[Rfam]
RNA sequence: GUGGCAGCCUGGCAGUCGUAUGUGUGGCGUCAUUUGCUGGAGCCCUUAGGAGUGACGUCACAUAUACAGCAGCUGAACUGCCAC
Numbered sequence: 001g002u003g004g005c006a007g008c009c010u011g012g013c014a015g016u017c018g019u020a021u022g023u024g025u026g027g028c029g030u031c032a033u034u035u036g037c038u039g040g041a042g043c044c045c046u047u048a049g050g051a052g053u054g055a056c057g058u059c060a061c062a063u064a065u066a067c068a069g070c071a072g073c074u075g076a077a078c079u080g081c082c083a084c
Base pairs, nucleotide, nucleotide: 002083003082004081005080006079007078015070016069018067019066020065021064022063024061025060026059027058029056031054032053033052037050038049
RNA: mir-489 microRNA precursor family
Organism: Carlito syrichta